[Rfam]
RNA sequence: AUGCCCCGUGCGGGAGAGCGCUGCUUUCAGCAGCCGCCGAAGGAGCAACCGCCCCGGAAUCUCUCAGGCACCAGGGACCGCGCGGGGAUG
Dot-bracket structure: .....((((((((......((((.......)))).(((((..(((...((.....))...))))).)))........)))))))).....
Annotation:
Rfam assigns this 90-nucleotide RNA from Sphingomonas rubra to the family "Glycine riboswitch aptamer". Its family is annotated with glycine biosynthetic process in the Gene Ontology. The organism belongs to Sphingomonas, within Bacteria.